[Rfam]
RNA sequence: GCUUGCCUGGCUCCCUGAAUGCCAUGUAAGAAGCUUGUCAAAAAGAAUUGACAGCCUUUUUAUUUGGCAUGAGGGGAGUCAUGCAGGC
Number, nucleotide and partner (000 for none) at each position: 001g088002c087003u086004u085005g084006c083007c000008u081009g080010g079011c078012u077013c076014c075015c000016u073017g000018a000019a070020u069021g068022c067023c066024a065025u000026g000027u062028a061029a060030g000031a000032a000033g000034c000035u000036u000037g000038u000039c000040a000041a000042a000043a000044a000045g000046a000047a000048u000049u000050g000051a000052c000053a000054g000055c000056c000057u000058u000059u000060u029061u028062a027063u000064u000065u024066g023067g022068c021069a020070u019071g000072a000073g016074g000075g014076g013077a012078g011079u010080c009081a008082u000083g006084c005085a004086g003087g002088c001

This 88-nucleotide RNA from Glycine max belongs to the Rfam family "mir-160 microRNA precursor family". A search with the family's covariance model found it, with a score of 50 bits. Taxonomically the source falls in Glycine subgen. Soja (Eukaryota, Viridiplantae, Tracheophyta, Pentapetalae). Rfam links the family to the GO terms miRNA-mediated post-transcriptional gene silencing and RISC complex. For this family Rfam cites "Prediction of plant microRNA targets" (Rhoades et al., Cell, 2002). Rfam 15.1 lists 1,502 matches to the family in 247 species.